[Rfam]
RNA sequence: ACCUUCUUAUUUAAGCUCUGUGCUAAAGUACUGGAAACUAGUAUCAUGCCUAAGUAUUUGUAAUAAAGCUAGUGGAGUAAACACAAGGAAAAAAACAACUGUACCAGAUAGUAGAAAAACUAAGAUGAACCUCUUUAAUAAGUCCAGUGUACUUUGUUCUGAGAUUUGGUACAAUAAUA
Numbered sequence: 001a002c003c004u005u006c007u008u009a010u011u012u013a014a015g016c017u018c019u020g021u022g023c024u025a026a027a028g029u030a031c032u033g034g035a036a037a038c039u040a041g042u043a044u045c046a047u048g049c050c051u052a053a054g055u056a057u058u059u060g061u062a063a064u065a066a067a068g069c070u071a072g073u074g075g076a077g078u079a080a081a082c083a084c085a086a087g088g089a090a091a092a093a094a095a096c097a098a099c100u101g102u103a104c105c106a107g108a109u110a111g112u113a114g115a116a117a118a119a120c121u122a123a124g125a126u127g128a129a130c131c132u133c134u135u136u137a138a139u140a141a142g143u144c145c146a147g148u149g150u151a152c153u154u155u156g157u158u159c160u161g162a163g164a165u166u167u168g169g170u171a172c173a174a175u176a177a178u179a
Base pairs, nucleotide, nucleotide: 018077019076021074022073023072024071025070029066034058035057037055038054039053041051044048100173101172102171103170104169105168106167107166108165122150124148126146127145129143
RNA: Small nucleolar RNA SNORA81